[Rfam]
RNA: SAM riboswitch aptamer (S box leader)
Organism: Algibacter luteus
RNA sequence: AUGUUAUCAAGAAAGGUAGAGGGAAUAGACCCGUUGAAACCUUGGCAACCUCCCGAACUUCGGGAAAGGUGCUACGUUCUACCAGUAAUUAAUUUACUGGACAGAUAACGA
Numbered sequence: 001a002u003g004u005u006a007u008c009a010a011g012a013a014a015g016g017u018a019g020a021g022g023g024a025a026u027a028g029a030c031c032c033g034u035u036g037a038a039a040c041c042u043u044g045g046c047a048a049c050c051u052c053c054c055g056a057a058c059u060u061c062g063g064g065a066a067a068g069g070u071g072c073u074a075c076g077u078u079c080u081a082c083c084a085g086u087a088a089u090u091a092a093u094u095u096a097c098u099g100g101a102c103a104g105a106u107a108a109c110g111a
Stems, first nucleotide, its partner, number of pairs: 002110007013043005021032003026081004044073004049069002051065004077103001082100006